A member of the RNA family "TPP riboswitch aptamer (THI element)" from Chloroflexi bacterium AL-W, 117 nucleotides long. Taxonomically the source falls in Chloroflexota (Bacteria, Bacillati). Pairs were carried over by alignment from the consensus structure, which is taken from published work.
[Rfam]
Nucleotides: 117
Stems, first nucleotide, its partner, number of pairs: 008103003011067004017033005040061005073098004079092004
Number, partner (000 for none) and nucleotide at each position: 001000c002000a003000a004000c005000a006000c007000a008103g009102c010101u011067a012066g013065g014064g015000g016000a017033g018032c019031c020030a021029g022000g023000u024000a025000g026000a027000g028000c029021c030020u031019g032018g033017c034000u035000g036000a037000g038000a039000g040061g041060g042059u043058g044057a045000a046000c047000c048000c049000u050000a051000c052000c053000g054000a055000u056000g057044u058043c059042a060041c061040c062000g063000a064014c065013c066012c067011u068000u069000a070000g071000a072000a073098c074097c075096u076095g077000a078000c079092c080091u081090g082089g083000a084000u085000g086000a087000u088000g089082c090081c091080a092079g093000c094000g095076u096075a097074g098073g099000a100000a101010a102009g103008c104000g105000a106000c107000c108000g109000g110000u111000u112000a113000c114000u115000g116000u117000g